A member of the RNA family "Small nucleolar RNA snoR27" from Vanilla planifolia, 93 nucleotides long. The family is grouped with related families in Rfam's "snR68 clan". The family has 6 seed sequences and 649 matches in Rfam 15.1. Pairs were carried over by alignment from the consensus structure, which was predicted with WAR.

RNA sequence: UUUGGAUCAAUGAUGCAACAAUAUUACUGCGUUAUCUUCCUGCAGUUGCCCAAAGAGGGCUUGAAGACAACUUCAAAUGUACUGAGAUCCAAA
Numbered sequence: 001u002u003u004g005g006a007u008c009a010a011u012g013a014u015g016c017a018a019c020a021a022u023a024u025u026a027c028u029g030c031g032u033u034a035u036c037u038u039c040c041u042g043c044a045g046u047u048g049c050c051c052a053a054a055g056a057g058g059g060c061u062u063g064a065a066g067a068c069a070a071c072u073u074c075a076a077a078u079g080u081a082c083u084g085a086g087a088u089c090c091a092a093a
Base pairs, nucleotide, nucleotide: 001093002092003091004090005089006088007087